[Rfam]
RNA sequence: UGCAAGGGCACUCUGUGCUAAUCAUUAUCAAUAUGUUAGUAACAAUUUGUUACCUUGCUAGAUUAAAUUCUACUAAACCCUAUUCCGAGAACCACUGCAUGGUUACUUGGUCAUAUUAGUAGAAACAUUUA
Numbered sequence: 001u002g003c004a005a006g007g008g009c010a011c012u013c014u015g016u017g018c019u020a021a022u023c024a025u026u027a028u029c030a031a032u033a034u035g036u037u038a039g040u041a042a043c044a045a046u047u048u049g050u051u052a053c054c055u056u057g058c059u060a061g062a063u064u065a066a067a068u069u070c071u072a073c074u075a076a077a078c079c080c081u082a083u084u085c086c087g088a089g090a091a092c093c094a095c096u097g098c099a100u101g102g103u104u105a106c107u108u109g110g111u112c113a114u115a116u117u118a119g120u121a122g123a124a125a126c127a128u129u130u131a
Base pairs, nucleotide, nucleotide: 002058003057004056005055006054007053010050011049014044015043016042017040018039019038020037021036022035065129066128069123070122072120073119074118076117077116085110086109087108088107089106090104092102093101

The family of this 131-nucleotide sequence from Pieris macdunnoughi is "Small nucleolar RNA psi18S-841/snoR66". Rfam describes the family as follows. psi18S-841 is a member of the H/ACA class of snoRNA. This family is responsible for guiding the modification of uridine 841 in Drosophila 18S rRNA to pseudouridine. Lineage of the source: Eukaryota > Arthropoda > Lepidoptera > Pierinae > Pieris. The family's RNA type in Rfam is H/ACA-box small nucleolar RNA.